[Rfam]
RNA sequence: UUUGAGGCUGUAAACAUCCCCGACUGGAAGCUGUCAGGUCCUCCCAGCUUUCAGUCCGAUGUUUGCGGCCGCUGG
Numbered sequence: 001u002u003u004g005a006g007g008c009u010g011u012a013a014a015c016a017u018c019c020c021c022g023a024c025u026g027g028a029a030g031c032u033g034u035c036a037g038g039u040c041c042u043c044c045c046a047g048c049u050u051u052c053a054g055u056c057c058g059a060u061g062u063u064u065g066c067g068g069c070c071g072c073u074g075g
Base pairs, nucleotide, nucleotide: 002074004072006070008068009067010066011065012064013063014062015061016060017059018058023055024054025053026052027051028050029049030048031047032046
This 75-nucleotide RNA sequence from Cyprinodon variegatus belongs to the Rfam family "mir-30 microRNA precursor family". Its family is annotated with RISC complex and gene silencing by miRNA in the Gene Ontology. The organism belongs to Cyprinodon, within Eukaryota.